[Rfam]
Nucleotides: 361
Stems, first nucleotide, its partner, number of pairs: 004158008014146004019049001021047005050105005058098003065092005070085006108140002114134005165254007258359005263278001267275001283351006289343003293336002300330003305326001308323005
Number, partner (000 for none) and nucleotide at each position: 001000g002000u003000u004158g005157u006156u007155g008154c009153c010152a011151c012000g013000a014146c015145a016144g017143u018000a019049a020000u021047c022046u023045a024044a025043c026000u027000u028000a029000g030000u031000a032000c033000g034000a035000g036000a037000g038000g039000a040000a041000c042000c043025g044024u045023u046022a047021g048000u049019u050105c051104g052103g053102a054101u055000a056000a057000u058098u059097g060096g061000u062000u063000u064000a065092u066091g067090g068089g069088g070085u071084u072083g073082u074081c075080u076000g077000a078000a079000c080075a081074g082073a083072c084071a085070g086000u087000g088069c089068c090067c091066c092065g093000a094000a095000g096060c097059u098058a099000c100000c101054a102053u103052c104051c105050g106000u107000c108140g109139g110000a111000u112000u113000a114134u115133g116132a117131c118130u119000g120000a121000a122000c123000g124000c125000c126000u127000c128000u129000a130118a131117g132116u133115c134114a135000g136000a137000a138000u139109c140108c141000a142000u143017g144016c145015u146014g147000a148000a149000a150000a151011g152010u153009g154008g155007c156006g157005a158004u159000g160000c161000a162000c163000u164000u165254g166253c167252u168251c169250c170249c171248g172000a173000u174000g175000u176000c177000a178000c179000g180000c181000g182000a183000a184000u185000a186000g187000c188000g189000a190000u191000a192000g193000c194000c195000g196000a197000a198000a199000g200000g201000c202000c203000a204000g205000c206000a207000u208000c209000a210000u211000a212000a213000a214000a215000u216000u217000g218000c219000g220000u221000u222000c223000a224000a225000c226000g227000c228000u229000g230000a231000a232000c233000c234000a235000c236000a237000a238000u239000u240000u241000c242000u243000a244000c245000c246000g247000u248171u249170g250169g251168g252167a253166g254165c255000g256000g257000u258359a259358a260357a261356u262355c263278c264000u265000u266000u267275g268000u269000a270000g271000a272000c273000g274000a275267c276000u277000u278263g279000a280000u281000a282000a283351g284350g285349a286348a287347c288346g289343g290342g291341g292000u293336a294335u295000u296000g297000u298000a299000a300330g301329c302328a303000u304000g305326a306000g307000a308323g309322u310321a311320g312319g313000c314000u315000u316000u317000g318000u319312c320311c321310u322309a323308c324000g325000a326305u327000c328302u329301g330300c331000u332000g333000a334000g335294a336293u337000u338000a339000a340000g341291c342290c343289u344000c345000u346288u347287g348286u349285u350284c351283c352000g353000a354000a355262g356261a357260u358259u359258u360000g361000u
Description: This 361-nucleotide part of an RNA from Ectocarpus siliculosus belongs to the Rfam family "Eukaryotic large subunit ribosomal RNA". Rfam links the family to the GO terms ribosome and structural constituent of ribosome.